The family of this 109-nucleotide sequence from Mycobacterium decipiens is "AS1890 sRNA".
A reference for the family is Arnvig and Young (2009), "Identification of small RNAs in Mycobacterium tuberculosis", Mol Microbiol.
It is annotated as a non-coding RNA gene.
[Rfam]
RNA sequence: CGCGCUGCCCUGCCCGCGACUCCGGUGCGAAGGAUCAGCUGGCCGUCGGAGGCAUCCAUGGUCCACAACGCGUCGCUCACACGACGACUGUAUUCAGACGAUCUGUCGG
Numbered sequence: 001c002g003c004g005c006u007g008c009c010c011u012g013c014c015c016g017c018g019a020c021u022c023c024g025g026u027g028c029g030a031a032g033g034a035u036c037a038g039c040u041g042g043c044c045g046u047c048g049g050a051g052g053c054a055u056c057c058a059u060g061g062u063c064c065a066c067a068a069c070g071c072g073u074c075g076c077u078c079a080c081a082c083g084a085c086g087a088c089u090g091u092a093u094u095c096a097g098a099c100g101a102u103c104u105g106u107c108g109g
Stems, first nucleotide, its partner, number of pairs: 002106002007062003011058001021050005027044001028042001030040001032039001070082001072080002085100002088097003